[Rfam]
RNA sequence: GUGGGAUACGGAGACAUGUGUCCGGUGACCAUCGGAGGAAAGAUCGUGGGUUCGCUGUGCGCCAUCGCCGGGGUUUUAACCAUCGCUCUGCCCGUUCCUGUCAUCGUGUCCAAC
Numbered sequence: 001g002u003g004g005g006a007u008a009c010g011g012a013g014a015c016a017u018g019u020g021u022c023c024g025g026u027g028a029c030c031a032u033c034g035g036a037g038g039a040a041a042g043a044u045c046g047u048g049g050g051u052u053c054g055c056u057g058u059g060c061g062c063c064a065u066c067g068c069c070g071g072g073g074u075u076u077u078a079a080c081c082a083u084c085g086c087u088c089u090g091c092c093c094g095u096u097c098c099u100g101u102c103a104u105c106g107u108g109u110c111c112a113a114c
Stems, first nucleotide, its partner, number of pairs: 001114002004111002007108005013102004018097001020095002037077004049063003
A member of the RNA family "Potassium channel RNA editing signal" from Gymnodraco acuticeps, 114 nucleotides long. NCBI's taxonomy places the organism under Eukaryota, Opisthokonta, Bilateria, Notothenioidei, Gymnodraco. About the family: This family represents a group of sequences related to the human potassium channel Kv1.1 hairpin element which directs the efficient modification of an adenosine to inosine by an adenosine deaminase acting on RNA (ADAR). The ADAR modification causes an isoleucine/valine recoding event which lies in the ion-conducting pore of the potassium channel. It is thought that this editing event targets the process of fast inactivation and allows a more rapid recovery from inactivation at negative potentials. It is annotated as a cis-regulatory element. Pairs were carried over by alignment from the consensus structure, which is taken from published work.